[Rfam]
RNA sequence: GUCACCUGGGGAUCUUGGUAAAAUGCAGAUUCUAAUUCAGUGGGUCUGAGGUGGAACCCAAGAUUCUGCACUUCUAAUAAGUUCCCAGAUGAGGCCUA
Numbered sequence: 001g002u003c004a005c006c007u008g009g010g011g012a013u014c015u016u017g018g019u020a021a022a023a024u025g026c027a028g029a030u031u032c033u034a035a036u037u038c039a040g041u042g043g044g045u046c047u048g049a050g051g052u053g054g055a056a057c058c059c060a061a062g063a064u065u066c067u068g069c070a071c072u073u074c075u076a077a078u079a080a081g082u083u084c085c086c087a088g089a090u091g092a093g094g095c096c097u098a
Stems, first nucleotide, its partner, number of pairs: 003091002009085003014081004019076002021073002025069005031063003
Dot-bracket structure: ..((....(((..((((.((((..(((((.(((...........................))).)))))..)).)).)))).)))....)).......